[Rfam]
Nucleotides: 164
Stems, first nucleotide, its partner, number of pairs: 022163002025160001029156001033151006041142003055139006066131003070127003074123003078106004084099004
Number, partner (000 for none) and nucleotide at each position: 001000a002000u003000u004000g005000a006000a007000a008000a009000u010000c011000a012000a013000u014000g015000a016000a017000u018000a019000a020000a021000a022163g023162u024000a025160u026000g027000c028000g029156u030000a031000a032000a033151c034150u035149c036148c037147g038146g039000u040000a041142c042141u043140g044000a045000c046000g047000a048000a049000c050000a051000g052000g053000a054000a055139g056138u057137a058136c059135a060134u061000a062000u063000g064000a065000g066131g067130c068129a069000u070127a071126c072125c073000a074123c075122c076121a077000a078106g079105g080104g081103u082000a083000a084099g085098c086097a087096a088000g089000c090000a091000c092000a093000g094000c095000a096087u097086u098085g099084c100000a101000a102000c103081g104080c105079c106078c107000a108000a109000a110000c111000g112000c113000a114000u115000a116000u117000u118000a119000a120000c121076u122075g123074g124000c125072g126071g127070u128000a129068u130067g131066u132000a133000g134060a135059u136058g137057u138056g139055c140043c141042a142041g143000g144000c145000a146038u147037u148036g149035g150034a151033g152000g153000a154000a155000g156029g157000a158000u159000a160025a161000g162023g163022c164000a

Group II catalytic intron D1-D4-3: a 164-nucleotide RNA.
Group II introns are found in rRNA, tRNA and mRNA of organelles in fungi, plants and protists, and also in mRNA in bacteria.
The base pairs follow the family's consensus structure.